[Rfam]
RNA sequence: GGGCGAUGAUUAUAAAGAGAGAGGAUUGAGUGGGGAGUGUGAACAAAACUCUCGUGGGAAUGGAGAAAACUAAACUCUAAUCGAAAUCGAUGGAGAAAAUAUAUUUUAUUUUUUCCCUUUUUCGAACUAGGUUUUUUUUUCUUCAUCCCUUACCCUCGAUGACGGUCCUUCCAAAUGUACACUUGAUAUGAGCCCU
Numbered sequence: 001g002g003g004c005g006a007u008g009a010u011u012a013u014a015a016a017g018a019g020a021g022a023g024g025a026u027u028g029a030g031u032g033g034g035g036a037g038u039g040u041g042a043a044c045a046a047a048a049c050u051c052u053c054g055u056g057g058g059a060a061u062g063g064a065g066a067a068a069a070c071u072a073a074a075c076u077c078u079a080a081u082c083g084a085a086a087u088c089g090a091u092g093g094a095g096a097a098a099a100u101a102u103a104u105u106u107u108a109u110u111u112u113u114u115c116c117c118u119u120u121u122u123c124g125a126a127c128u129a130g131g132u133u134u135u136u137u138u139u140u141c142u143u144c145a146u147c148c149c150u151u152a153c154c155c156u157c158g159a160u161g162a163c164g165g166u167c168c169u170u171c172c173a174a175a176u177g178u179a180c181a182c183u184u185g186a187u188a189u190g191a192g193c194c195c196u
Stems, first nucleotide, its partner, number of pairs: 001195004009187004021157004027054004032049001038045002056150003062147002064142006073134002076131002081125006092116007160179002162176001164172002
The family of this 196-nucleotide sequence from Brassica rapa is "Small nucleolar RNA snoR125".
Rfam links the family to the GO terms nucleolus and RNA processing.
On this family, see Chen and Wu, Nucleic Acids Res 2009: "Mining small RNA sequencing data: a new approach to identify small nucleolar RNAs in Arabidopsis".
Pairs were carried over by alignment from the consensus structure, which was predicted with mfold.
Rfam classes the family as a C/D-box small nucleolar RNA.